[Rfam]
mir-184 microRNA precursor family: a 63-nucleotide RNA sequence from Ictalurus punctatus. Rfam links the family to the GO terms RISC complex and gene silencing by miRNA. The source organism's lineage runs through Eukaryota, Actinopterygii, Actinopteri, Siluroidei and Ictalurus. It is one of the family's seed sequences.
RNA sequence: CCUUAUCACUUUUCCAGCCCAGCUAUCCAUUUAGUAUUCGUUGGACGGAGAACUGAUAAGGGC
Numbered sequence: 001c002c003u004u005a006u007c008a009c010u011u012u013u014c015c016a017g018c019c020c021a022g023c024u025a026u027c028c029a030u031u032u033a034g035u036a037u038u039c040g041u042u043g044g045a046c047g048g049a050g051a052a053c054u055g056a057u058a059a060g061g062g063c
Stems, first nucleotide, its partner, number of pairs: 001061008010052006018044002
Dot-bracket structure: ((((((((.((((((..((.......................))..)))))).))))))))..
A reference for the family is Chen et al. (2005), "The developmental miRNA profiles of zebrafish as determined by small RNA cloning", Genes Dev.